[Rfam]
RNA: Actinobacteria sRNA Ms_IGR-7
RNA sequence: ACGAGGUGUCCUUUGCAGCGGGCCGAUGGAAGCGUAGGAACUCCCAUCCUCCCAGUUCAAGGGACACCUCACUUCAUUUCGCAGACCUCGCCGCUGACUUCACGCUGUGGAUUGUG
Numbered sequence: 001a002c003g004a005g006g007u008g009u010c011c012u013u014u015g016c017a018g019c020g021g022g023c024c025g026a027u028g029g030a031a032g033c034g035u036a037g038g039a040a041c042u043c044c045c046a047u048c049c050u051c052c053c054a055g056u057u058c059a060a061g062g063g064a065c066a067c068c069u070c071a072c073u074u075c076a077u078u079u080c081g082c083a084g085a086c087c088u089c090g091c092c093g094c095u096g097a098c099u100u101c102a103c104g105c106u107g108u109g110g111a112u113u114g115u116g
Stems, first nucleotide, its partner, number of pairs: 003070011017057001019055001021052002025048003029044001031042002095114003099111004